The family of this 64-nucleotide RNA sequence from Equus caballus is "Small nucleolar RNA SNORD58".
Its family is annotated with nucleolus and RNA processing in the Gene Ontology.
On this family, see Galardi et al., Mol Cell Biol 2002: "Purified box C/D snoRNPs are able to reproduce site-specific 2'-O-methylation of target RNA in vitro".
snoRNA U58 is found in introns 1, 3 and 6 of the ribosomal protein RPL17 gene in humans.
RNA sequence: UUGCUGUGAUGACUAACUUAGGACACCUUUGGAACAACCGUGAAAGAAUACUAUUCUGAGCAAC
Numbered sequence: 001u002u003g004c005u006g007u008g009a010u011g012a013c014u015a016a017c018u019u020a021g022g023a024c025a026c027c028u029u030u031g032g033a034a035c036a037a038c039c040g041u042g043a044a045a046g047a048a049u050a051c052u053a054u055u056c057u058g059a060g061c062a063a064c
Base pairs, nucleotide, nucleotide: 001063002062003061004060